[Rfam]
RNA sequence: CUCUAUAAUAAAUUAUUGACUCAUAUAUCCCCUUAAUAAGGUAGGGAGUAUCUACCAGAAGCCUUAAACUUCUGACUAUGAGUGAAUAAAGCAUUGUC
Numbered sequence: 001c002u003c004u005a006u007a008a009u010a011a012a013u014u015a016u017u018g019a020c021u022c023a024u025a026u027a028u029c030c031c032c033u034u035a036a037u038a039a040g041g042u043a044g045g046g047a048g049u050a051u052c053u054a055c056c057a058g059a060a061g062c063c064u065u066a067a068a069c070u071u072c073u074g075a076c077u078a079u080g081a082g083u084g085a086a087u088a089a090a091g092c093a094u095u096g097u098c
Stems, first nucleotide, its partner, number of pairs: 019083007030046004056074006

The record is a 98-nucleotide RNA from Clostridium tetani, which matches "Purine riboswitch aptamer" in Rfam.
Gene Ontology term of the family: purine nucleobase biosynthetic process.
A search with the family's covariance model found it, with a score of 68 bits.